[Rfam]
RNA sequence: GAAGUCCACUAGGGGUGCCAUUUGGCUGAGAUAAGAGUAAUCUUUAUCCCUUUGAACCUGAUCUGGUUAACACCAGCGUAGGGAAGUGGAGCCGGAUUCGU
Numbered sequence: 001g002a003a004g005u006c007c008a009c010u011a012g013g014g015g016u017g018c019c020a021u022u023u024g025g026c027u028g029a030g031a032u033a034a035g036a037g038u039a040a041u042c043u044u045u046a047u048c049c050c051u052u053u054g055a056a057c058c059u060g061a062u063c064u065g066g067u068u069a070a071c072a073c074c075a076g077c078g079u080a081g082g083g084a085a086g087u088g089g090a091g092c093c094g095g096a097u098u099c100g101u
Stems, first nucleotide, its partner, number of pairs: 006089005011051004017026003033044004057082004063076004
RNA: TPP riboswitch aptamer (THI element)
Organism: Terribacillus sp. AE2B 122